RNA: Small nucleolar RNA SNORD34
RNA sequence: CGAGGCCGGUGAUGAUCUACAUAUAUUUUGCCUACAUUGGAUGAUUAUCUGGUAUAAGAUAAUGAUAUUAUCUCCCAUAUCUGAGGCCUUU
Numbered sequence: 001c002g003a004g005g006c007c008g009g010u011g012a013u014g015a016u017c018u019a020c021a022u023a024u025a026u027u028u029u030g031c032c033u034a035c036a037u038u039g040g041a042u043g044a045u046u047a048u049c050u051g052g053u054a055u056a057a058g059a060u061a062a063u064g065a066u067a068u069u070a071u072c073u074c075c076c077a078u079a080u081c082u083g084a085g086g087c088c089u090u091u
Stems, first nucleotide, its partner, number of pairs: 002090001004088004
Dot-bracket structure: .(.((((.............................................................................)))).).